The record is a 75-nucleotide RNA from Chelydra serpentina, which matches "U1A polyadenylation inhibition element (PIE)" in Rfam. This family represents the U1A polyadenylation inhibition element (PIE). PIE is a regulatory RNA which is responsible for the regulation of the length of the polyA tail of the U1A pre-mRNA. The PIE is located in the U1A mRNA 3' UTR. PIE adopts a U-shaped structure, with binding sites for a single U1A protein at each bend and when complexed with the two proteins it blocks activity of poly(A) polymerase (PAP), and inhibits its activity. The base pairs follow the family's consensus structure, which is taken from published work. It is annotated as a cis-regulatory element. The literature on the family includes a 2004 paper in Biochemistry by Clerte and Hall, "Global and Local Dynamics of the U1A Polyadenylation Inhibition Element (PIE) RNA and PIE RNA-U1A Complexes".

Nucleotides: 075
Base pairs, nucleotide, nucleotide: 005054006053007051008050009049017047018046019045020044022036023035024034025033026032
Number, partner (000 for none) and nucleotide at each position: 001000c002000c003000c004000u005054g006053a007051a008050g009049c010000a011000u012000u013000g014000u015000a016000c017047c018046c019045a020044g021000a022036g023035u024034c025033u026032g027000c028000u029000g030000c031000u032026c033025a034024g035023a036022c037000a038000u039000u040000g041000c042000a043000c044020c045019u046018g047017g048000c049009g050008c051007u052000c053006u054005c055000u056000g057000u058000u059000c060000u061000g062000u063000a064000a065000u066000a067000a068000a069000a070000g071000c072000u073000c074000c075000u